[Rfam]
RNA sequence: GUGCGCUCUGGGCUUCUCUACAGUGUUGCCUUGUGGCAUGGGGAUCAAGCAGCAUUGUACAGGGCUAUCACAGCGUGC
Numbered sequence: 001g002u003g004c005g006c007u008c009u010g011g012g013c014u015u016c017u018c019u020a021c022a023g024u025g026u027u028g029c030c031u032u033g034u035g036g037c038a039u040g041g042g043g044a045u046c047a048a049g050c051a052g053c054a055u056u057g058u059a060c061a062g063g064g065c066u067a068u069c070a071c072a073g074c075g076u077g078c
Stems, first nucleotide, its partner, number of pairs: 014064004019059010030049004
Dot-bracket structure: .............((((.((((((((((.((((............)))))))))))))).))))..............